The family of this 56-nucleotide RNA from Chlorogloea sp. CCALA 695 is "Glutamine riboswitch aptamer (glnA leader)". The source organism's lineage runs through Bacteria, Cyanobacteriota, Chroococcales, Entophysalidaceae and Chlorogloea.

RNA sequence: AGCGUUCAUCUCUUGGUAAAAGAGACGGAAGUAAGAUCGGACUGAAGGAACGCGCC
Numbered sequence: 001a002g003c004g005u006u007c008a009u010c011u012c013u014u015g016g017u018a019a020a021a022g023a024g025a026c027g028g029a030a031g032u033a034a035g036a037u038c039g040g041a042c043u044g045a046a047g048g049a050a051c052g053c054g055c056c
Base pairs, nucleotide, nucleotide: 003052004051005050006049007048009025010024011023012022013021028053034043035042
Rfam links the family to the GO term glutamine binding.